[Rfam]
RNA: U7 small nuclear RNA
Organism: Gouania willdenowi
Nucleotides: 056
Stems, first nucleotide, its partner, number of pairs: 033053008
Number, partner (000 for none) and nucleotide at each position: 001000u002000a003000g004000a005000u006000u007000a008000g009000a010000u011000g012000c013000u014000c015000u016000u017000a018000a019000g020000u021000g022000u023000u024000u025000u026000u027000c028000a029000a030000g031000c032000a033053g034052g035051u036050u037049u038048c039047u040046c041000a042000u043000a044000a045000a046040g047039a048038g049037a050036a051035g052034c053033c054000c055000a056000c